[Rfam]
A member of the RNA family "Fluoride riboswitch aptamer (crcB RNA motif)" from Desulfotomaculum copahuensis, 62 nucleotides long. The source organism's lineage runs through Bacteria, Bacillota, Clostridia, Eubacteriales and Desulfotomaculum. It scores 46 bits against the family's covariance model. Pairs were carried over by alignment from the consensus structure, which is taken from published work. Its family is annotated with positive regulation of gene expression and response to fluoride in the Gene Ontology.
RNA sequence: AACGGUUGGGGCGAUGGAGCUCGCCAUUAACUGCUCUUGCAGCUGAUAGCUCCUGUUGGACG
Numbered sequence: 001a002a003c004g005g006u007u008g009g010g011g012c013g014a015u016g017g018a019g020c021u022c023g024c025c026a027u028u029a030a031c032u033g034c035u036c037u038u039g040c041a042g043c044u045g046a047u048a049g050c051u052c053c054u055g056u057u058g059g060a061c062g
Stems, first nucleotide, its partner, number of pairs: 010025004016053006033043003